The family of this 110-nucleotide sequence from Chlorocebus sabaeus is "Y RNA". Y RNAs are components of the Ro ribonucleoprotein particle (Ro RNP), in association with Ro60 and La proteins. The family's RNA type in Rfam is non-coding RNA gene. On this family, see Teunissen et al., Nucleic Acids Res 2000: "Conserved features of Y RNAs: a comparison of experimentally derived secondary structures". Rfam 15.1 lists 26,986 matches to the family in 650 species.

[Rfam]
RNA sequence: GGCUGACCUGAGGGUAGUGAGUUAUCUCAAUUGAUUAUUCAGUCAGUUACAGAUCAAACUCUUUGUUCUACUCUUUCCCCCUUCUCACUACUAUACUUGACUAGUCUUAA
Numbered sequence: 001g002g003c004u005g006a007c008c009u010g011a012g013g014g015u016a017g018u019g020a021g022u023u024a025u026c027u028c029a030a031u032u033g034a035u036u037a038u039u040c041a042g043u044c045a046g047u048u049a050c051a052g053a054u055c056a057a058a059c060u061c062u063u064u065g066u067u068c069u070a071c072u073c074u075u076u077c078c079c080c081c082u083u084c085u086c087a088c089u090a091c092u093a094u095a096c097u098u099g100a101c102u103a104g105u106c107u108u109a110a
Base pairs, nucleotide, nucleotide: 001106002105003104004103005102008099010098011097014094015093016089017088018087019086020085021084041072042071043070045069046068